[Rfam]
RNA: RNase MRP
Organism: Klebsormidium nitens
RNA sequence: GAGCGGGGCGAAGGACCACUCCGGCAGCACUUUCGAUAUCUGAGCUUUCAUCGUGAACAAUGCCGGGCGAAAGUCCCCGGGCGACAAGGUCGAGAGGACCAGCCUUAGCAGGCAGACCUCCAUACGACCCCUCGCGGGGGCCCCCGGGCCCCCGGGCUGAGAUGCGCAAGCGGAGCCUCGUCGAGGGGUCAUGGAGCAGCUCGCCAUAGCACAGUAAUGUGGGUCAGUGGGGACGCAACCCACCAACACAAUGGGGCUUACUCUUGCCAUGCU
Numbered sequence: 001g002a003g004c005g006g007g008g009c010g011a012a013g014g015a016c017c018a019c020u021c022c023g024g025c026a027g028c029a030c031u032u033u034c035g036a037u038a039u040c041u042g043a044g045c046u047u048u049c050a051u052c053g054u055g056a057a058c059a060a061u062g063c064c065g066g067g068c069g070a071a072a073g074u075c076c077c078c079g080g081g082c083g084a085c086a087a088g089g090u091c092g093a094g095a096g097g098a099c100c101a102g103c104c105u106u107a108g109c110a111g112g113c114a115g116a117c118c119u120c121c122a123u124a125c126g127a128c129c130c131c132u133c134g135c136g137g138g139g140g141c142c143c144c145c146g147g148g149c150c151c152c153c154g155g156g157c158u159g160a161g162a163u164g165c166g167c168a169a170g171c172g173g174a175g176c177c178u179c180g181u182c183g184a185g186g187g188g189u190c191a192u193g194g195a196g197c198a199g200c201u202c203g204c205c206a207u208a209g210c211a212c213a214g215u216a217a218u219g220u221g222g223g224u225c226a227g228u229g230g231g232g233a234c235g236c237a238a239c240c241c242a243c244c245a246a247c248a249c250a251a252u253g254g255g256g257c258u259u260a261c262u263c264u265u266g267c268c269a270u271g272c273u
Stems, first nucleotide, its partner, number of pairs: 002273004007268005014225003017221003020067007036051002071259003075256004088100004102113004142188004154178004164171002227243005